[Rfam]
Nucleotides: 246
Stems, first nucleotide, its partner, number of pairs: 001246009012237003015231005050217003053063001055117007072110002083099001085097001108224001129210005134166005170203004179195002183191003
Number, partner (000 for none) and nucleotide at each position: 001246u002245c003244c004243u005242c006241c007240c008239a009238a010000g011000u012237c013236u014235g015231u016230g017229g018228u019227u020000g021000c022000g023000g024000g025000c026000a027000g028000c029000u030000u031000g032000a033000a034000c035000a036000g037000c038000a039000u040000g041000u042000c043000c044000u045000a046000g047000u048000c049000c050217a051216u052215g053063g054000c055117a056116g057115a058114u059113g060112c061111g062000g063053u064000c065000g066000a067000a068000a069000g070000g071000a072110u073109c074000c075000a076000c077000g078000u079000a080000a081000a082000c083099g084000g085097c086000c087000g088000a089000g090000g091000c092000a093000a094000c095000u096000c097085g098000g099083u100000c101000g102000c103000g104000a105000g106000c107000a108224u109073g110072g111061c112060g113059c114058a115057u116056c117055u118000u119000a120000g121000g122000g123000g124000u125000a126000a127000g128000a129210c130209g131208u132207a133206c134166c135165g136164u137163c138162c139000g140000u141000u142000a143000u144000g145000g146000g147000c148000g149000c150000a151000u152000a153000g154000g155000g156000c157000g158000c159000c160000c161000c162138g163137g164136g165135c166134g167000a168000g169000a170203a171202a172201g173200u174000g175000a176000g177000u178000a179195g180194u181000g182000a183191g184190a185189u186000c187000g188000u189185a190184u191183c192000a193000g194180g195179c196000g197000a198000a199000a200173g201172c202171u203170u204000c205000g206133g207132u208131a209130u210129g211000c212000g213000a214000g215052u216051g217050u218000g219000g220000g221000g222000u223000c224108a225000a226000a227019a228018a229017c230016c231015a232000g233000g234000u235014c236013a237012g238009u239008u240007g241006g242005g243004g244003g245002g246001a
raiA RNA: a 246-nucleotide RNA sequence.
The family's consensus secondary structure is taken from published work.
It is annotated as a riboswitch.